[Rfam]
RNA sequence: UGGGCAGUAUCGAGAGAGCUGCACCUUUAUUUGCCCAAAAAAAUUUGAAAAUCUGCCUUGAUCCAGUUGGACAGGGACGGAGGG
Numbered sequence: 001u002g003g004g005c006a007g008u009a010u011c012g013a014g015a016g017a018g019c020u021g022c023a024c025c026u027u028u029a030u031u032u033g034c035c036c037a038a039a040a041a042a043a044u045u046u047g048a049a050a051a052u053c054u055g056c057c058u059u060g061a062u063c064c065a066g067u068u069g070g071a072c073a074g075g076g077a078c079g080g081a082g083g084g
Stems, first nucleotide, its partner, number of pairs: 002025002004022005010017002053080003056076005062071003
A member of the RNA family "pan motif" from Peribacillus asahii, 84 nucleotides long. Taxonomically the source falls in Peribacillus (Bacteria, Bacillota, Bacilli, Caryophanales). Rfam classes the family as a cis-regulatory element.